A member of the RNA family "DUF805 RNA" from Bacteroidetes bacterium B1(2017), 68 nucleotides long.

RNA sequence: UAAAAGUUGAAACCAAAAACAACUCUAAAAAAGGGGCGGAACCGAAAAGCCAAAUGAGUAGGAAAAAC
Numbered sequence: 001u002a003a004a005a006g007u008u009g010a011a012a013c014c015a016a017a018a019a020c021a022a023c024u025c026u027a028a029a030a031a032a033g034g035g036g037c038g039g040a041a042c043c044g045a046a047a048a049g050c051c052a053a054a055u056g057a058g059u060a061g062g063a064a065a066a067a068c
Base pairs, nucleotide, nucleotide: 006023007022008021009020035051036050037049042062043061
The family's RNA type in Rfam is cis-regulatory element. Rfam 15.1 lists 281 matches to the family in 219 species.